[Rfam]
RNA sequence: UCGUAACACGAACCGGUGCUCAAGGGUCCCACCCACCUGUUACUGACAGGGGCCGUCGGGGCAGGGACCCUUUAGCACCGGUUCGUGUUACAAA
Numbered sequence: 001u002c003g004u005a006a007c008a009c010g011a012a013c014c015g016g017u018g019c020u021c022a023a024g025g026g027u028c029c030c031a032c033c034c035a036c037c038u039g040u041u042a043c044u045g046a047c048a049g050g051g052g053c054c055g056u057c058g059g060g061g062c063a064g065g066g067a068c069c070c071u072u073u074a075g076c077a078c079c080g081g082u083u084c085g086u087g088u089u090a091c092a093a094a
Stems, first nucleotide, its partner, number of pairs: 003091018022072006029065002032060003037055001043049002
Dot-bracket structure: ..((((((((((((((((((.((((((.((.(((..(.....((...)).....)..)))...)).)))))).))))))))))))))))))...
Annotation: Shown here is a 94-nucleotide RNA from Sorghum bicolor, a member of the family "MIR5387 microRNA precursor family". Lineage of the source: Eukaryota > Tracheophyta > Euphyllophyta > Panicoideae > Sorghum. Rfam 15.1 lists 1,029 matches to the family in 9 species. A search with the family's covariance model found it, with a score of 92 bits. Gene Ontology terms of the family: RISC complex and miRNA-mediated post-transcriptional gene silencing. The base pairs follow the family's consensus structure, which was predicted with RNAalifold.